[Rfam]
RNA sequence: UGGUUCAAGUUGGAGAAGUGGUCUCUCGCUUUGUAUUGAAAGUGAAGAUUCAACUCCUCCAACUUAUUCCU
Numbered sequence: 001u002g003g004u005u006c007a008a009g010u011u012g013g014a015g016a017a018g019u020g021g022u023c024u025c026u027c028g029c030u031u032u033g034u035a036u037u038g039a040a041a042g043u044g045a046a047g048a049u050u051c052a053a054c055u056c057c058u059c060c061a062a063c064u065u066a067u068u069c070c071u
Base pairs, nucleotide, nucleotide: 007065008064009063011061012060013059014058015057018055019053024048025047026045027044028043029042030041031040
Dot-bracket structure: ......(((.(((((..((....((((((((........)))))).))....).).))))).)))......